Annotation:
The family of this 54-nucleotide RNA sequence from Salmo trutta is "UnaL2 LINE 3' element". It is annotated as a cis-regulatory element. The family's consensus secondary structure is taken from published work.

[Rfam]
RNA sequence: UGUAUUCACUACUGUAAGUCCCUCUGGAUAAGAGCCUCUGCUAAAUGACUGUGA
Numbered sequence: 001u002g003u004a005u006u007c008a009c010u011a012c013u014g015u016a017a018g019u020c021c022c023u024c025u026g027g028a029u030a031a032g033a034g035c036c037u038c039u040g041c042u043a044a045a046u047g048a049c050u051g052u053g054a
Stems, first nucleotide, its partner, number of pairs: 013043001014041003022034004

The organism belongs to Salmo, within Eukaryota.